[Rfam]
RNA: Bacterial RNase P class A
Organism: Kocuria rhizophila
RNA sequence: CAGGUGGGCCGGGCGACCGCGCGGCGUCGUCGUUCGCGACGGCGUCUCGAGGAAAGUCCGGGCUCCGCAGAGCAGGACGGUGGGUAACACCCACUCGGGGAAACCCGCAGGACAGUGCCACAGAAAACAGACCGCCCGCCGCGAGCGGGUCAGGGUGAAAAGGUGGUGUAAGAGACCACCAGCGCGCCGGGUGACCGGCGCGGCUCGGUAAACCCCGUCCGGAGCAAGGCCAUGCAGGGCGCGUUCGAGGGCUGCUCGCCCGAGCGUCCGGGUAGGCUGCUCGAGCCGUGCGGCAACGCACGGCCUAGAUGGAUGGUCGUCACCGCGGUGCGGGCAACCGGCCGCGGCACAGAACCCGGCUCACAGGCCCACCUGUCCA
Numbered sequence: 001c002a003g004g005u006g007g008g009c010c011g012g013g014c015g016a017c018c019g020c021g022c023g024g025c026g027u028c029g030u031c032g033u034u035c036g037c038g039a040c041g042g043c044g045u046c047u048c049g050a051g052g053a054a055a056g057u058c059c060g061g062g063c064u065c066c067g068c069a070g071a072g073c074a075g076g077a078c079g080g081u082g083g084g085u086a087a088c089a090c091c092c093a094c095u096c097g098g099g100g101a102a103a104c105c106c107g108c109a110g111g112a113c114a115g116u117g118c119c120a121c122a123g124a125a126a127a128c129a130g131a132c133c134g135c136c137c138g139c140c141g142c143g144a145g146c147g148g149g150u151c152a153g154g155g156u157g158a159a160a161a162g163g164u165g166g167u168g169u170a171a172g173a174g175a176c177c178a179c180c181a182g183c184g185c186g187c188c189g190g191g192u193g194a195c196c197g198g199c200g201c202g203g204c205u206c207g208g209u210a211a212a213c214c215c216c217g218u219c220c221g222g223a224g225c226a227a228g229g230c231c232a233u234g235c236a237g238g239g240c241g242c243g244u245u246c247g248a249g250g251g252c253u254g255c256u257c258g259c260c261c262g263a264g265c266g267u268c269c270g271g272g273u274a275g276g277c278u279g280c281u282c283g284a285g286c287c288g289u290g291c292g293g294c295a296a297c298g299c300a301c302g303g304c305c306u307a308g309a310u311g312g313a314u315g316g317u318c319g320u321c322a323c324c325g326c327g328g329u330g331c332g333g334g335c336a337a338c339c340g341g342c343c344g345c346g347g348c349a350c351a352g353a354a355c356c357c358g359g360c361u362c363a364c365a366g367g368c369c370c371a372c373c374u375g376u377c378c379a
Base pairs, nucleotide, nucleotide: 001375002374003373004372005371006370007369008368009367010366011364012321013320014319015318016317017316018315020049021048023046024045025044026043027042028041029040030039031038055361056360058359059358060357061356062355063224064223065222066221070257071256072255073254075220076219077218078217079216080094081093082092083091084090095109096107097106098105099104110215111214115213116212117209118208119207132154133153134150135149136148137147138146139145162180163179164178165177166176167175182204183202184201185200186199187198188197189196190195228278229277230276231275237269238268239267240266241265242264249261250260251259252258285304286303287302288301289300290299291298292297